[Rfam]
RNA sequence: AUUGUCCUCAUCUGUAAGUCGCUUUGGAUAAAAGCGUCUGCUAAAUCACAAAAA
Numbered sequence: 001a002u003u004g005u006c007c008u009c010a011u012c013u014g015u016a017a018g019u020c021g022c023u024u025u026g027g028a029u030a031a032a033a034g035c036g037u038c039u040g041c042u043a044a045a046u047c048a049c050a051a052a053a054a
Stems, first nucleotide, its partner, number of pairs: 013043001014041003020036006

This 54-nucleotide sequence from Onychostoma macrolepis belongs to the Rfam family "UnaL2 LINE 3' element". Rfam classes the family as a cis-regulatory element. A reference for the family is Baba et al. (2004), "Solution structure of an RNA stem-loop derived from the 3' conserved region of eel LINE UnaL2", RNA. The source organism's lineage runs through Eukaryota, Metazoa, Teleostomi, Actinopterygii and Onychostoma.